[Rfam]
RNA: Rhodo-rpoB RNA
RNA sequence: GGAUCGGGAGGCUUCCGGUGGGACGGAAGCCAGGAAUAGACCGGAACUUAUCCGCUCUCAGACGGGCGCUGUGCCGCAGCCCAACGGCAUGGAC
Numbered sequence: 001g002g003a004u005c006g007g008g009a010g011g012c013u014u015c016c017g018g019u020g021g022g023a024c025g026g027a028a029g030c031c032a033g034g035a036a037u038a039g040a041c042c043g044g045a046a047c048u049u050a051u052c053c054g055c056u057c058u059c060a061g062a063c064g065g066g067c068g069c070u071g072u073g074c075c076g077c078a079g080c081c082c083a084a085c086g087g088c089a090u091g092g093a094c
Base pairs, nucleotide, nucleotide: 002042004040005039010031011030012029013028014027015026016025017024068094070092072089073088074087075086076085